Description
A member of the RNA family "Plant signal recognition particle RNA" from Panicum virgatum, 309 nucleotides long. Rfam 15.1 lists 4,988 matches to the family in 266 species.
RNA sequence: GCCGAGCAGGUAGCGACUGCUUGUCACCCGAGCCGGGGGCAUUAAGGUGGUGCGGAUGCCGAUUGCGCGGCGCUUUGGGCCUGGGUCUGGUUGUCGCAUUCCGCGGCCCGCCCGUUCCAAGUUGCGUAGUGGGCUGCGGGCGCUUUGGCGAAGGCCUCGGCGUCCCGGCACUUAGAGCGGCGGGCAUUGCGUGAGGCUGGCUUCACAGAGCAGCGAAUACCGCCCGCUUCCAACGGUGGAAGGAUAACGGGCCGCUGCGCUCCCGGCCCGCUUGGGCCCAGACGCCCUCUCUGGCAGACCACCAUCUUU
Numbered sequence: 001g002c003c004g005a006g007c008a009g010g011u012a013g014c015g016a017c018u019g020c021u022u023g024u025c026a027c028c029c030g031a032g033c034c035g036g037g038g039g040c041a042u043u044a045a046g047g048u049g050g051u052g053c054g055g056a057u058g059c060c061g062a063u064u065g066c067g068c069g070g071c072g073c074u075u076u077g078g079g080c081c082u083g084g085g086u087c088u089g090g091u092u093g094u095c096g097c098a099u100u101c102c103g104c105g106g107c108c109c110g111c112c113c114g115u116u117c118c119a120a121g122u123u124g125c126g127u128a129g130u131g132g133g134c135u136g137c138g139g140g141c142g143c144u145u146u147g148g149c150g151a152a153g154g155c156c157u158c159g160g161c162g163u164c165c166c167g168g169c170a171c172u173u174a175g176a177g178c179g180g181c182g183g184g185c186a187u188u189g190c191g192u193g194a195g196g197c198u199g200g201c202u203u204c205a206c207a208g209a210g211c212a213g214c215g216a217a218u219a220c221c222g223c224c225c226g227c228u229u230c231c232a233a234c235g236g237u238g239g240a241a242g243g244a245u246a247a248c249g250g251g252c253c254g255c256u257g258c259g260c261u262c263c264c265g266g267c268c269c270g271c272u273u274g275g276g277c278c279c280a281g282a283c284g285c286c287c288u289c290u291c292u293g294g295c296a297g298a299c300c301a302c303c304a305u306c307u308u309u
Stems, first nucleotide, its partner, number of pairs: 001040003004022006027037004044308009054299001057296005065290001067288001069286002074282008083269005089263002095259004103255008112243002115241005121234004126230001128228003131171001133169004138165007147156003172177001179224005188217001190215003197208003